A member of the RNA family "Small nucleolar RNA SNORD67" from Megalops atlanticus, 111 nucleotides long. The pairing is the family consensus, mapped onto this sequence. The organism belongs to Megalops, within Eukaryota. snoRNA HBII-166 belongs to the C/D family of snoRNAs. It scores 82 bits against the family's covariance model. It is annotated as a C/D-box small nucleolar RNA.
RNA sequence: CUUGAGAGUGAUGAGUUGCACCAUCUGUUGGGACACCCGUGCAGUGGCAUAGGAGUCCCAAUCUGAUCUCCUGAGGACACGCCCAUGUGCACAGGGGCCAUCUGACUCACC
Numbered sequence: 001c002u003u004g005a006g007a008g009u010g011a012u013g014a015g016u017u018g019c020a021c022c023a024u025c026u027g028u029u030g031g032g033a034c035a036c037c038c039g040u041g042c043a044g045u046g047g048c049a050u051a052g053g054a055g056u057c058c059c060a061a062u063c064u065g066a067u068c069u070c071c072u073g074a075g076g077a078c079a080c081g082c083c084c085a086u087g088u089g090c091a092c093a094g095g096g097g098c099c100a101u102c103u104g105a106c107u108c109a110c111c
Base pairs, nucleotide, nucleotide: 004110006108007107008106024066025065027063028061029060030059031058033056034055039050040049041048042047